[Rfam]
RNA: Bacterial small subunit ribosomal RNA, nucleotides 1 to 562
Organism: Treponema sp. Marseille-Q4132
RNA sequence: AUGAUGGAGAGUUUGAUCCUGGCUCAGAACGAACGCUGGCGGCGCGUCUUAACCAUGCAAGUCGAGCGGCAGGCAGCAAUGCCGAGAGCGGCGGACUGGUGAGUAACACGUGGAUAACGUACCCCGCUGACCGGGACAGCCUGUAGAAAUAGAGGGUGAUACCGGAUAGAUCACUGUUUACGGAAGGUAGACAGCGGGAAAGGAGCUUCGGCUCCGCGACGGGAUCGGUCUGCGGCCCAUCAGCUAGACGGCGGGGUAAUGGCCCGCCGUGGCGAGGACGGGUAUCCGGCCUGAGAGGGCGGACGGACACAUUGGGACUGAGAUACGGCCCAGACUCCUACGGGAGGCAGCAGGUAAGAAUAUUCCGCAAUGGGGGAAACCCUGACGGAGCGACGCCGCGUGAACGAAGAAGGCCGGAAGGUUGUAAAGUUCUUUUCUGUCCGAGGAAUAAGUGUUGGAGGAAAUGCCGACACGGUGACGGUAGGGCAGGAAUAAGCACCGGCUAAUUACGUGCCAGCAGCCGCGGUAACACGUAAGGUGCGAGCGUUGUUCGGAAUUAUUG
Numbered sequence: 001a002u003g004a005u006g007g008a009g010a011g012u013u014u015g016a017u018c019c020u021g022g023c024u025c026a027g028a029a030c031g032a033a034c035g036c037u038g039g040c041g042g043c044g045c046g047u048c049u050u051a052a053c054c055a056u057g058c059a060a061g062u063c064g065a066g067c068g069g070c071a072g073g074c075a076g077c078a079a080u081g082c083c084g085a086g087a088g089c090g091g092c093g094g095a096c097u098g099g100u101g102a103g104u105a106a107c108a109c110g111u112g113g114a115u116a117a118c119g120u121a122c123c124c125c126g127c128u129g130a131c132c133g134g135g136a137c138a139g140c141c142u143g144u145a146g147a148a149a150u151a152g153a154g155g156g157u158g159a160u161a162c163c164g165g166a167u168a169g170a171u172c173a174c175u176g177u178u179u180a181c182g183g184a185a186g187g188u189a190g191a192c193a194g195c196g197g198g199a200a201a202g203g204a205g206c207u208u209c210g211g212c213u214c215c216g217c218g219a220c221g222g223g224a225u226c227g228g229u230c231u232g233c234g235g236c237c238c239a240u241c242a243g244c245u246a247g248a249c250g251g252c253g254g255g256g257u258a259a260u261g262g263c264c265c266g267c268c269g270u271g272g273c274g275a276g277g278a279c280g281g282g283u284a285u286c287c288g289g290c291c292u293g294a295g296a297g298g299g300c301g302g303a304c305g306g307a308c309a310c311a312u313u314g315g316g317a318c319u320g321a322g323a324u325a326c327g328g329c330c331c332a333g334a335c336u337c338c339u340a341c342g343g344g345a346g347g348c349a350g351c352a353g354g355u356a357a358g359a360a361u362a363u364u365c366c367g368c369a370a371u372g373g374g375g376g377a378a379a380c381c382c383u384g385a386c387g388g389a390g391c392g393a394c395g396c397c398g399c400g401u402g403a404a405c406g407a408a409g410a411a412g413g414c415c416g417g418a419a420g421g422u423u424g425u426a427a428a429g430u431u432c433u434u435u436u437c438u439g440u441c442c443g444a445g446g447a448a449u450a451a452g453u454g455u456u457g458g459a460g461g462a463a464a465u466g467c468c469g470a471c472a473c474g475g476u477g478a479c480g481g482u483a484g485g486g487c488a489g490g491a492a493u494a495a496g497c498a499c500c501g502g503c504u505a506a507u508u509a510c511g512u513g514c515c516a517g518c519a520g521c522c523g524c525g526g527u528a529a530c531a532c533g534u535a536a537g538g539u540g541c542g543a544g545c546g547u548u549g550u551u552c553g554g555a556a557u558u559a560u561u562g
Stems, first nucleotide, its partner, number of pairs: 009025005027552004032548006039399006045392002047357001052355003056352003061092003066089002070084001072083004099310003109234007118227002123223004128218002131165004140155003144151002171197002174194004179189003202215005236282003243273003248270008285307004289300004312333005335346004363389001365388003371384005402432004412423004437489006446479001452473006496541005507536005517524002